RNA: Small nucleolar RNA SNORA55
RNA sequence: GCACCAAAUCUUUCCCAUUCCUUACUGCGCAGUGUGGGCCUGGGGACACAUGGUGCUGACAGAAAAGCAGAGUAAAUCCAGACAGGUGACUUCUCAUUUAUCGAGUACCUGUCUCUACACCUCUGCAACAGUU
Numbered sequence: 001g002c003a004c005c006a007a008a009u010c011u012u013u014c015c016c017a018u019u020c021c022u023u024a025c026u027g028c029g030c031a032g033u034g035u036g037g038g039c040c041u042g043g044g045g046a047c048a049c050a051u052g053g054u055g056c057u058g059a060c061a062g063a064a065a066a067g068c069a070g071a072g073u074a075a076a077u078c079c080a081g082a083c084a085g086g087u088g089a090c091u092u093c094u095c096a097u098u099u100a101u102c103g104a105g106u107a108c109c110u111g112u113c114u115c116u117a118c119a120c121c122u123c124u125g126c127a128a129c130a131g132u133u
Stems, first nucleotide, its partner, number of pairs: 001056005012046006020038002067126006080114008093105003